[Rfam]
The record is an 87-nucleotide RNA from Tepidibacillus fermentans, which matches "c-di-GMP-I riboswitch aptamer" in Rfam. The family's consensus secondary structure is taken from published work. The match comes from Rfam's covariance-model search (89 bits). Its family is annotated with cyclic-di-GMP binding in the Gene Ontology.

RNA sequence: AAUCAAUAAAGGCAAACUACUCGAAAGGGUAGGACGCAAAGCCAUGGGUCUAAGGUUCAUAUGAACGAUGAUUGCCAGGUUGCUGAU
Number, nucleotide and partner (000 for none) at each position: 001a000002a000003u000004c000005a000006a000007u000008a000009a000010a000011g000012g037013c036014a000015a000016a000017c032018u031019a030020c029021u028022c027023g000024a000025a000026a000027g022028g021029g020030u019031a018032g017033g000034a000035c000036g013037c012038a000039a000040a081041g080042c079043c078044a000045u077046g076047g075048g072049u071050c070051u000052a000053a000054g000055g066056u065057u064058c063059a000060u000061a000062u000063g058064a057065a056066c055067g000068a000069u000070g050071a049072u048073u000074g000075c047076c046077a045078g043079g042080u041081u040082g000083c000084u000085g000086a000087u000